This 82-nucleotide sequence from Leucobacter triazinivorans belongs to the Rfam family "ZMP/ZTP riboswitch aptamer (pfl RNA motif)". The base pairs follow the family's consensus structure, which is taken from published work. The literature on the family includes a 2015 paper in Mol Cell by Kim et al., "An ancient riboswitch class in bacteria regulates purine biosynthesis and one-carbon metabolism". Taxonomically the source falls in Leucobacter (Bacteria, Bacillati, Micrococcales, Microbacteriaceae).
RNA sequence: CGGAACCGUCGUGACUGGCGUGCAGAUGGGACACCAUCGGGGAACGACAUCUCUUUCAAGGCCGCUCGCCUGGGCCGCACUU
Dot-bracket structure: ..((...(((((..(([[[[.....((((....))))..))..)))))...))......((((...]]]]..))))......